[Rfam]
The record is a 151-nucleotide RNA sequence from Butyrivibrio sp. YAB3001, which matches "Clostridiales-1 RNA" in Rfam. The family's RNA type in Rfam is small RNA.

RNA sequence: CGAUAGAUGGAUGAGAGUUCAUAUCAAAAACUUGCUUGCAAGGUUUUUGAUGUGAAUUCGAAGACAUAACGGACAUGAGGAAGAAGCGCGAAUAGCGCGGAUUCCGAAUGGACGCCUCAGAGCGAGAAUGAAAUGAAGCUCUGAGGUAUCG
Numbered sequence: 001c002g003a004u005a006g007a008u009g010g011a012u013g014a015g016a017g018u019u020c021a022u023a024u025c026a027a028a029a030a031c032u033u034g035c036u037u038g039c040a041a042g043g044u045u046u047u048u049g050a051u052g053u054g055a056a057u058u059c060g061a062a063g064a065c066a067u068a069a070c071g072g073a074c075a076u077g078a079g080g081a082a083g084a085a086g087c088g089c090g091a092a093u094a095g096c097g098c099g100g101a102u103u104c105c106g107a108a109u110g111g112a113c114g115c116c117u118c119a120g121a122g123c124g125a126g127a128a129u130g131a132a133a134u135g136a137a138g139c140u141c142u143g144a145g146g147u148a149u150c151g
Base pairs, nucleotide, nucleotide: 001151002150003149004148009065012062015059016058017057018056019055020054021053022052023051024050025049026048027047028046029045031042032041033040034039070114071113074110075109076108079105080104081103082102086098087097088096089095117144118143119142120141121140122139123138128134129133
Dot-bracket structure: ((((....(..(..(((((((((((((((.((((....))))..)))))))))))))))..)..)....((..(((..((((...((((.....))))...))))..)))..))..(((((((....((...))...)))))))...))))

A search with the family's covariance model found it, with a score of 76 bits.